[Rfam]
RNA sequence: UAAGGAGCACGCCAUGCAAUAUCAUUUUGCCGGGUGGCCCAUUGCUGGCUGCCCUUCUG
Numbered sequence: 001u002a003a004g005g006a007g008c009a010c011g012c013c014a015u016g017c018a019a020u021a022u023c024a025u026u027u028u029g030c031c032g033g034g035u036g037g038c039c040c041a042u043u044g045c046u047g048g049c050u051g052c053c054c055u056u057c058u059g
Base pairs, nucleotide, nucleotide: 004054005053007052008051009050012048013047014046016045017044018043019042020041025036027034028033

Record summary:
Lambda phage CIII thermoregulator element: a 59-nucleotide RNA from Enterobacteria phage ES18. Rfam's curators put it in the seed alignment. It is annotated as an RNA thermoregulator. About the family: There is an evidence supporting presence of a riboswitch upstream of the thermometer. A reference for the family is Altuvia et al. (1989), "Alternative mRNA structures of the cIII gene of bacteriophage lambda determine the rate of its translation initiation", J Mol Biol. NCBI's taxonomy places the organism under Viruses, Duplodnaviria, Heunggongvirae, Uroviricota, Caudoviricetes.